[Rfam]
The family of this 159-nucleotide sequence from Streptomyces sp. SID8352 is "c-di-AMP riboswitch aptamer (ydaO/yuaA leader)". NCBI's taxonomy places the organism under Bacteria, Bacillati, Actinomycetota, Kitasatosporales, Streptomyces. About the family: This family represents a conserved RNA structure found upstream of the ydaO and yuaA genes in Bacillus subtilis and related genes in other bacteria.

RNA sequence: UCCAUCUCACCACCCGUACCCGGCAGGAGCGGGGGACCCACAGGUUCGACCGCCUGUUCCGGUUCCCGGAACGGCUAGGGGUAAAGCCGCGCCGUCCGCGCGGCCGGGCAUCUCCAGCCCGCACCCGACAGCUCACCUCGCAGGCGCCGGAGAGGAAUU
Numbered sequence: 001u002c003c004a005u006c007u008c009a010c011c012a013c014c015c016g017u018a019c020c021c022g023g024c025a026g027g028a029g030c031g032g033g034g035g036a037c038c039c040a041c042a043g044g045u046u047c048g049a050c051c052g053c054c055u056g057u058u059c060c061g062g063u064u065c066c067c068g069g070a071a072c073g074g075c076u077a078g079g080g081g082u083a084a085a086g087c088c089g090c091g092c093c094g095u096c097c098g099c100g101c102g103g104c105c106g107g108g109c110a111u112c113u114c115c116a117g118c119c120c121g122c123a124c125c126c127g128a129c130a131g132c133u134c135a136c137c138u139c140g141c142a143g144g145c146g147c148c149g150g151a152g153a154g155g156a157a158u159u
Base pairs, nucleotide, nucleotide: 001028002027003026029141030140031139032138033137034136039078079126080125081124087103088102089101090100106120107119108118109117